[Rfam]
RNA sequence: CUGCGGACUUAAUUGGAUUGAGCCUUGGUAUGGAAACCUACUAAGUGAGAACUUUCAAAUUCAGAGAAACCCCGGAAUUAAUAAAAAUGGGCAAUCCUGAGCCAAAUCCUAUUUUACAAAAACAAACAAAGGCCCAGAAGGUGAAAAAGGGAUAGGUGCAGAGACUCAAUGGAAGCUGUUCUAACAAAUGGAAUUGACUGUGUUGCAUUGGUAGAGGAAUCCUUCCAUUGAAACUUCCGAAAAGAUGAAGGAUAUACAUAUAUACAUACGUACUGAAAUACUCUAUCAAAUGAUUAAUGACGACCUUAAUCUGUAUUUUUAUAUGAAAAAAAUAAAAAAGGAAAAGUUGUUGUGAAUCGAUUCCAUAUUGAAGAAAGAAUCGAAUAUUCAUUGAUCAAAACAUUCACCACAUAGUCUGAUAGUUCUUUUGCAGAACUAAUUAAUCGGACGAGAAUAAAGAUAGAGUCCCAUUCUACAUGUCAAUACCGG
Number, nucleotide and partner (000 for none) at each position: 001c000002u000003g000004c000005g024006g000007a000008c022009u021010u020011a019012a018013u017014u000015g000016g000017a013018u012019u011020g010021a009022g008023c000024c005025u000026u000027g000028g000029u000030a000031u000032g000033g000034a000035a000036a000037c000038c000039u000040a000041c000042u000043a000044a000045g000046u000047g000048a000049g000050a177051a000052c175053u174054u173055u000056c171057a170058a000059a000060u000061u100062c099063a098064g097065a000066g095067a000068a000069a000070c000071c091072c090073c089074g088075g000076a000077a000078u000079u000080a000081a000082u000083a000084a000085a000086a000087a000088u074089g073090g072091g071092c000093a000094a000095u066096c000097c064098u063099g062100a061101g157102c156103c000104a000105a000106a000107u151108c150109c149110u000111a000112u000113u145114u144115u143116a142117c141118a000119a000120a000121a000122a000123c000124a000125a000126a000127c000128a000129a000130a000131g000132g000133c000134c000135c000136a000137g000138a000139a000140g000141g117142u116143g115144a114145a113146a000147a000148a000149g109150g108151g107152a000153u000154a000155g000156g102157u101158g000159c000160a000161g468162a000163g467164a466165c465166u464167c463168a000169a000170u057171g056172g000173a054174a053175g052176c000177u050178g000179u454180u453181c452182u451183a000184a000185c000186a000187a000188a000189u000190g000191g000192a000193a000194u000195u000196g000197a000198c000199u000200g000201u000202g000203u000204u000205g000206c000207a000208u000209u000210g000211g000212u000213a000214g000215a000216g000217g000218a000219a000220u000221c000222c000223u000224u000225c000226c000227a000228u000229u000230g000231a000232a000233a000234c000235u000236u000237c000238c000239g000240a000241a000242a000243a000244g000245a000246u000247g000248a000249a000250g000251g000252a000253u000254a000255u000256a000257c000258a000259u000260a000261u000262a000263u000264a000265c000266a000267u000268a000269c000270g000271u000272a000273c000274u000275g000276a000277a000278a000279u000280a000281c000282u000283c000284u000285a000286u000287c000288a000289a000290a000291u000292g000293a000294u000295u000296a000297a000298u000299g000300a000301c000302g000303a000304c000305c000306u000307u000308a000309a000310u000311c000312u000313g000314u000315a000316u000317u000318u000319u000320u000321a000322u000323a000324u000325g000326a000327a000328a000329a000330a000331a000332a000333u000334a000335a000336a000337a000338a000339a000340g000341g000342a000343a000344a000345a000346g000347u000348u000349g000350u000351u000352g000353u000354g000355a000356a000357u000358c000359g000360a000361u000362u000363c000364c000365a000366u000367a000368u000369u000370g000371a000372a000373g000374a000375a000376a000377g000378a000379a000380u000381c000382g000383a000384a000385u000386a000387u000388u000389c000390a000391u000392u000393g000394a000395u000396c000397a000398a000399a000400a000401c000402a000403u000404u000405c000406a000407c000408c000409a000410c000411a000412u000413a000414g000415u000416c000417u000418g000419a000420u000421a000422g000423u000424u000425c000426u000427u000428u000429u000430g000431c000432a000433g000434a000435a000436c000437u000438a000439a000440u000441u000442a000443a000444u000445c000446g000447g000448a000449c000450g000451a182452g181453a180454a179455u000456a000457a000458a000459g000460a000461u000462a000463g167464a166465g165466u164467c163468c161469c000470a000471u000472u000473c000474u000475a000476c000477a484478u483479g000480u000481c000482a000483a478484u477485a000486c000487c000488g000489g000
RNA: Group I catalytic intron
Organism: Apium graveolens